[Rfam]
RNA: ASpks TB sRNA
RNA sequence: CUUCAGCGAGCCGAGCAGCAACUGCCGGCCGCGCGGCCGGCCCUGCCCGUAGGUCGCGAGGAUCGCCUGCGCCUC
Numbered sequence: 001c002u003u004c005a006g007c008g009a010g011c012c013g014a015g016c017a018g019c020a021a022c023u024g025c026c027g028g029c030c031g032c033g034c035g036g037c038c039g040g041c042c043c044u045g046c047c048c049g050u051a052g053g054u055c056g057c058g059a060g061g062a063u064c065g066c067c068u069g070c071g072c073c074u075c
Stems, first nucleotide, its partner, number of pairs: 015025003032071003038065002043060002047056001049054001